[Rfam]
RNA sequence: CGGAAAAUGCAGCCGAGAUCCGUUCAACGUAACGGAUGCGGGGGACCCGAGAAACAGGGGCGAAUUCCACGCACUUAUCGGAAGCGGAUGAUUUUUAGUCAGGUCAAGGAAGGCGAGUGAUGACGCGGAGGCGUACUUGCAGGUACGCCGCACAAGGAAUCGCGCAGUCUGACGCAGAGAUGGCAAAAAAGAACCGCUUCAUUGGUGCCGAAUGAGGACUUUCAGCCUCAAGCCCGUCAGCUAACCUCGUAGGCAUCUGGAAGGGCAGAA
Numbered sequence: 001c002g003g004a005a006a007a008u009g010c011a012g013c014c015g016a017g018a019u020c021c022g023u024u025c026a027a028c029g030u031a032a033c034g035g036a037u038g039c040g041g042g043g044g045a046c047c048c049g050a051g052a053a054a055c056a057g058g059g060g061c062g063a064a065u066u067c068c069a070c071g072c073a074c075u076u077a078u079c080g081g082a083a084g085c086g087g088a089u090g091a092u093u094u095u096u097a098g099u100c101a102g103g104u105c106a107a108g109g110a111a112g113g114c115g116a117g118u119g120a121u122g123a124c125g126c127g128g129a130g131g132c133g134u135a136c137u138u139g140c141a142g143g144u145a146c147g148c149c150g151c152a153c154a155a156g157g158a159a160u161c162g163c164g165c166a167g168u169c170u171g172a173c174g175c176a177g178a179g180a181u182g183g184c185a186a187a188a189a190a191g192a193a194c195c196g197c198u199u200c201a202u203u204g205g206u207g208c209c210g211a212a213u214g215a216g217g218a219c220u221u222u223c224a225g226c227c228u229c230a231a232g233c234c235c236g237u238c239a240g241c242u243a244a245c246c247u248c249g250u251a252g253g254c255a256u257c258u259g260g261a262a263g264g265g266c267a268g269a270a
Stems, first nucleotide, its partner, number of pairs: 012254003018037007038250006048057001058235003066211002214229004
Annotation:
c-di-AMP riboswitch aptamer (ydaO/yuaA leader): a 270-nucleotide RNA from Geobacter sp. OR-1. Rfam's curators write: This family represents a conserved RNA structure found upstream of the ydaO and yuaA genes in Bacillus subtilis and related genes in other bacteria.